The family of this 119-nucleotide sequence from Levilactobacillus brevis is "SAM-III riboswitch aptamer (SMK box)".
A search with the family's covariance model found it, with a score of 57 bits.
The family's consensus secondary structure is taken from published work.
On this family, see Fuchs et al., Proc Natl Acad Sci U S A 2007: "S-adenosylmethionine directly inhibits binding of 30S ribosomal subunits to the SMK box translational riboswitch RNA".
[Rfam]
RNA sequence: UUGAGUUAUGAGUCAAUUCCCGAUAGGAUUCACAUGCUAGUGAAGCUGCCUUGUAACCGAAUGGCGACGAGAUUAUCGGUCAACUUGCCGUCUACUAUAUCUAGGGGGAAUAUCCAUUG
Numbered sequence: 001u002u003g004a005g006u007u008a009u010g011a012g013u014c015a016a017u018u019c020c021c022g023a024u025a026g027g028a029u030u031c032a033c034a035u036g037c038u039a040g041u042g043a044a045g046c047u048g049c050c051u052u053g054u055a056a057c058c059g060a061a062u063g064g065c066g067a068c069g070a071g072a073u074u075a076u077c078g079g080u081c082a083a084c085u086u087g088c089c090g091u092c093u094a095c096u097a098u099a100u101c102u103a104g105g106g107g108g109a110a111u112a113u114c115c116a117u118u119g
Stems, first nucleotide, its partner, number of pairs: 017110005025051003029044005057105002